Rfam assigns this 137-nucleotide RNA from Lachnotalea glycerini to the family "Group II catalytic intron D1-D4-4". It scores 101 bits against the family's covariance model. For this family Rfam cites "The ins and outs of group II introns" (Bonen and Vogel, Trends Genet, 2001). Rfam's curators write: Group II introns are found in rRNA, tRNA and mRNA of organelles in fungi, plants and protists, and also in mRNA in bacteria. Rfam 15.1 lists 840 matches to the family in 506 species. Its family is annotated with Group II intron splicing in the Gene Ontology.
[Rfam]
RNA sequence: CUGCCGGUGUAAGUCCGGUCACGGUAAUCGCCAGUGAGCCGUGUAGCUAAAUCCGGUGCGUUACAGUAAUGUAGGGUGCUAAGCGGAUGGAUAAAGUCUUCGAAAGAGGGCGAGCAAUUAUACAGACCGUAACAUAA
Numbered sequence: 001c002u003g004c005c006g007g008u009g010u011a012a013g014u015c016c017g018g019u020c021a022c023g024g025u026a027a028u029c030g031c032c033a034g035u036g037a038g039c040c041g042u043g044u045a046g047c048u049a050a051a052u053c054c055g056g057u058g059c060g061u062u063a064c065a066g067u068a069a070u071g072u073a074g075g076g077u078g079c080u081a082a083g084c085g086g087a088u089g090g091a092u093a094a095a096g097u098c099u100u101c102g103a104a105a106g107a108g109g110g111c112g113a114g115c116a117a118u119u120a121u122a123c124a125g126a127c128c129g130u131a132a133c134a135u136a137a
Stems, first nucleotide, its partner, number of pairs: 020043005051088004055080005064071002096111006114130002